The family of this 133-nucleotide sequence from Bacillus sp. HNG is "ylbH leader". On this family, see Barrick et al., Proc Natl Acad Sci U S A 2004: "New RNA motifs suggest an expanded scope for riboswitches in bacterial genetic control".
RNA sequence: AACAAAAAAACCCUGCAAGUCUACCUGCAGGGUCCUUCCAUUCCAUGUUUUCUUACCGUUCACAUGGAAGAAGGCAAAGGGAGAGGAGAAACCGGAGGAAGAACUUAUGGGGAAACGUAAGUCUUCUCCGCGG
Numbered sequence: 001a002a003c004a005a006a007a008a009a010a011c012c013c014u015g016c017a018a019g020u021c022u023a024c025c026u027g028c029a030g031g032g033u034c035c036u037u038c039c040a041u042u043c044c045a046u047g048u049u050u051u052c053u054u055a056c057c058g059u060u061c062a063c064a065u066g067g068a069a070g071a072a073g074g075c076a077a078a079g080g081g082a083g084a085g086g087a088g089a090a091a092c093c094g095g096a097g098g099a100a101g102a103a104c105u106u107a108u109g110g111g112g113a114a115a116c117g118u119a120a121g122u123c124u125u126c127u128c129c130g131c132g133g
Stems, first nucleotide, its partner, number of pairs: 011032007019024001033081005042068006093130004098126004103122005
Its family is annotated with regulation of gene expression in the Gene Ontology. The base pairs follow the family's consensus structure.